The family of this 154-nucleotide RNA from Amborella trichopoda is "MIR8565 microRNA precursor family". A search with the family's covariance model found it, with a score of 146 bits.

RNA sequence: UCCCCACCCAUGUGUGUAGGACCUCAAAGGAUCACCAUUAAAUUUGGCAUGGAUCCCUAGAAACAUUAUCACAUGGGUGUGAGACUUGAUUUUUUUAGAGAUCCCUUCCAAAUUUAAUGGUGAUCCUUUGGGGUCCUACACACAUGGGUGGGAG
Numbered sequence: 001u002c003c004c005c006a007c008c009c010a011u012g013u014g015u016g017u018a019g020g021a022c023c024u025c026a027a028a029g030g031a032u033c034a035c036c037a038u039u040a041a042a043u044u045u046g047g048c049a050u051g052g053a054u055c056c057c058u059a060g061a062a063a064c065a066u067u068a069u070c071a072c073a074u075g076g077g078u079g080u081g082a083g084a085c086u087u088g089a090u091u092u093u094u095u096u097a098g099a100g101a102u103c104c105c106u107u108c109c110a111a112a113u114u115u116a117a118u119g120g121u122g123a124u125c126c127u128u129u130g131g132g133g134u135c136c137u138a139c140a141c142a143c144a145u146g147g148g149u150g151g152g153a154g
Stems, first nucleotide, its partner, number of pairs: 003152011015140014030125003034121014049106001051104005057098007065090004069082005